[Rfam]
RNA: Hairpin ribozyme 1 from viruses-like metatranscriptomes
RNA sequence: CAUUUGAGUUGUUAUAACUUCUUCAUGGAUAAAGCAUACUCUCAUAUCGGCUUAAGCCGGUGGCAUGGGUACGUUUAAACAUGUGUAGAGUGCAGAGGUUCCUUAAAAAGGUUUCAAACUUGGAUUUAAACUACUACAAACGAAGAAAUAACAAUGAAGAUGACCAGGGAAACAUGACGUACAGUAAUGUGCGUUAGCACAUUAACUGGU
Numbered sequence: 001c002a003u004u005u006g007a008g009u010u011g012u013u014a015u016a017a018c019u020u021c022u023u024c025a026u027g028g029a030u031a032a033a034g035c036a037u038a039c040u041c042u043c044a045u046a047u048c049g050g051c052u053u054a055a056g057c058c059g060g061u062g063g064c065a066u067g068g069g070u071a072c073g074u075u076u077a078a079a080c081a082u083g084u085g086u087a088g089a090g091u092g093c094a095g096a097g098g099u100u101c102c103u104u105a106a107a108a109a110g111g112u113u114u115c116a117a118a119c120u121u122g123g124a125u126u127u128a129a130a131c132u133a134c135u136a137c138a139a140a141c142g143a144a145g146a147a148a149u150a151a152c153a154a155u156g157a158a159g160a161u162g163a164c165c166a167g168g169g170a171a172a173c174a175u176g177a178c179g180u181a182c183a184g185u186a187a188u189g190u191g192c193g194u195u196a197g198c199a200c201a202u203u204a205a206c207u208g209g210u
Base pairs, nucleotide, nucleotide: 001162002161003160004159009154010153011152012151013150014149015148084138085137086136087135163210164209165208166207167206175196176195177194178193179192180191181190